[Rfam]
RNA sequence: CCCCCUAGCGACCAUGGCUGUAGACUGUUACUAAAAAGGCUGUUGCUACAGUAACAAUCUAAUGCCACGGUCACCAUGGAGAC
Numbered sequence: 001c002c003c004c005c006u007a008g009c010g011a012c013c014a015u016g017g018c019u020g021u022a023g024a025c026u027g028u029u030a031c032u033a034a035a036a037a038g039g040c041u042g043u044u045g046c047u048a049c050a051g052u053a054a055c056a057a058u059c060u061a062a063u064g065c066c067a068c069g070g071u072c073a074c075c076a077u078g079g080a081g082a083c
Base pairs, nucleotide, nucleotide: 012070013069015067016066017065018064023059024058026056027055028054029053030052031051032050

Description
A member of the RNA family "mir-132 microRNA precursor family" from Danionella cerebrum, 83 nucleotides long. A search with the family's covariance model found it, with a score of 52 bits. Rfam 15.1 lists 1,023 matches to the family in 386 species. Lineage of the source: Eukaryota > Craniata > Teleostei > Otophysi > Danionella. The base pairs follow the family's consensus structure, which was predicted with RNAalifold.